[Rfam]
RNA sequence: GAGGCACGCAGCGACUGGCGGCACAGGGAUGGUCCAACCAUCGGGGAGCUCGUCACGAGGAGUCGACCGCCUGGGCUCCCGGC
Dot-bracket structure: ..[..[[..[[[..[[(((((.......((((.....))))..]]..]]].]]..]...[[[[[..)))))..]]]]].....
Notes:
A member of the RNA family "ZMP/ZTP riboswitch aptamer (pfl RNA motif)" from Actinoplanes philippinensis, 83 nucleotides long. Lineage of the source: Bacteria > Actinomycetota > Actinomycetes > Micromonosporaceae > Actinoplanes.